[Rfam]
RNA sequence: GGGGCUGUGGCCAAUCCCGGCAUGGCGACUGACUCCAGAUCAGUCGAUCGGGGGUUCGAAUCCCUCCGGCCCCA
Dot-bracket structure: (((((((..((((.........)))).(((((.......))))).....(((((.......)))))))))))).
Numbered sequence: 001g002g003g004g005c006u007g008u009g010g011c012c013a014a015u016c017c018c019g020g021c022a023u024g025g026c027g028a029c030u031g032a033c034u035c036c037a038g039a040u041c042a043g044u045c046g047a048u049c050g051g052g053g054g055u056u057c058g059a060a061u062c063c064c065u066c067c068g069g070c071c072c073c074a
Stems, first nucleotide, its partner, number of pairs: 001073007010026004028044005050066005